Small nucleolar RNA SNORD69: a 78-nucleotide RNA sequence from Odontophorus gujanensis. A search with the family's covariance model found it, with a score of 42 bits. On this family, see Huttenhofer et al., EMBO J 2001: "RNomics: an experimental approach that identifies 201 candidates for novel, small, non-messenger RNAs in mouse". The family's RNA type in Rfam is C/D-box small nucleolar RNA. Pairs were carried over by alignment from the consensus structure. Its family is annotated with RNA processing and nucleolus in the Gene Ontology. About the family: snoRNA HBII-210 belongs to the C/D family of snoRNAs. It is the human orthologue of the mouse MBII-210 and is predicted to guide the 2'O-ribose methylation of large 28S rRNA on residue G4464.
RNA sequence: AACACAAAGCACGUGAUGAGAAAGCACUGAAACUGACUCCGUAUGAAGUGCAUUCAAUCCAAUGCUGAGCUUUGUGGC
Numbered sequence: 001a002a003c004a005c006a007a008a009g010c011a012c013g014u015g016a017u018g019a020g021a022a023a024g025c026a027c028u029g030a031a032a033c034u035g036a037c038u039c040c041g042u043a044u045g046a047a048g049u050g051c052a053u054u055c056a057a058u059c060c061a062a063u064g065c066u067g068a069g070c071u072u073u074g075u076g077g078c
Base pairs, nucleotide, nucleotide: 003076004075005074006073007072008071009070010069